[Rfam]
The family of this 86-nucleotide sequence from Pseudoalteromonas ulvae is "c-di-GMP-I riboswitch aptamer".
About the family: GEMM was predicted in a large-scale screen for bacterial structured RNA regulatory elements.
RNA sequence: GUUCGACAAAGGCAAACUUAAUGAAAGUUAAGGACGCAAAGCUGUUGAUCUAAGGGUGCUUUACCUAUGAUUGCAAGGCCGCCAAC
Numbered sequence: 001g002u003u004c005g006a007c008a009a010a011g012g013c014a015a016a017c018u019u020a021a022u023g024a025a026a027g028u029u030a031a032g033g034a035c036g037c038a039a040a041g042c043u044g045u046u047g048a049u050c051u052a053a054g055g056g057u058g059c060u061u062u063a064c065c066u067a068u069g070a071u072u073g074c075a076a077g078g079c080c081g082c083c084a085a086c
Base pairs, nucleotide, nucleotide: 012037013036017032018031019030020029021028022027041079042078043077045076046075047074048071049070050069055065056064057063058062